[Rfam]
RNA sequence: AGCCUUGCGUAUAAGAACCGAGAUUCCAUCAGUUACUAAACCACAAGGGCUGAUGAGACUUCCAUGGUAAUUAAGGCG
Numbered sequence: 001a002g003c004c005u006u007g008c009g010u011a012u013a014a015g016a017a018c019c020g021a022g023a024u025u026c027c028a029u030c031a032g033u034u035a036c037u038a039a040a041c042c043a044c045a046a047g048g049g050c051u052g053a054u055g056a057g058a059c060u061u062c063c064a065u066g067g068u069a070a071u072u073a074a075g076g077c078g
Stems, first nucleotide, its partner, number of pairs: 002077005010069003013065001020061003024058002027055004
RNA: mir-3492 microRNA precursor family